[Rfam]
RNA sequence: CCAAAGGCUCUUUUAAGAGCCACCCACACUUUUCAGAAAAGGAGUU
Number, nucleotide and partner (000 for none) at each position: 001c000002c000003a000004a000005a000006g021007g020008c019009u018010c017011u016012u000013u000014u000015a000016a011017g010018a009019g008020c007021c006022a000023c000024c000025c000026a000027c000028a000029c000030u000031u000032u000033u000034c000035a000036g000037a000038a000039a000040a000041g000042g000043a000044g000045u000046u000
Rfam assigns this 46-nucleotide sequence from Mus spicilegus to the family "Histone 3' UTR stem-loop". The mRNAs of metazoan histone genes lack a poly-A tail. 3' end processing occurs at a site between a highly conserved stem-loop (modelled by this family) and a purine rich region around 20 nts downstream (the histone downstream element, or HDE). The stem-loop is bound by a 31 kDa stem-loop binding protein (SLBP - also termed the histone hairpin binding protein, or HBP). Together with U7 snRNA binding of the HDE, SLBP binding nucleate s the formation of the processing complex. The histone 3' UTR stem-loop is also involved in nucleocytoplasmic transport of the mRNA, and in stability regulation and translation efficiency in the cytoplasm. The match comes from Rfam's covariance-model search (40 bits).